RNA sequence: GGCGAUGGACCCGGCGGUGCCCCCACCCGGUAGCCCUGGCGCACCUUCCCCGGUGCCAGGUCUGCCGGGUGGAGGCAUCGCCGACCCGGGGGAUUGCA
Numbered sequence: 001g002g003c004g005a006u007g008g009a010c011c012c013g014g015c016g017g018u019g020c021c022c023c024c025a026c027c028c029g030g031u032a033g034c035c036c037u038g039g040c041g042c043a044c045c046u047u048c049c050c051c052g053g054u055g056c057c058a059g060g061u062c063u064g065c066c067g068g069g070u071g072g073a074g075g076c077a078u079c080g081c082c083g084a085c086c087c088g089g090g091g092g093a094u095u096g097c098a
Base pairs, nucleotide, nucleotide: 012083013082014081015080016079018077019076021074023072024071025070026069027068028067029066030065031064032063033062035060036059037058038057039056040055041054042053

Rfam assigns this 98-nucleotide sequence from Pseudonocardia sp. MH-G8 to the family "mraW RNA". It is annotated as a cis-regulatory element. The source organism's lineage runs through Bacteria, Bacillati, Actinomycetota, Actinomycetes and Pseudonocardia.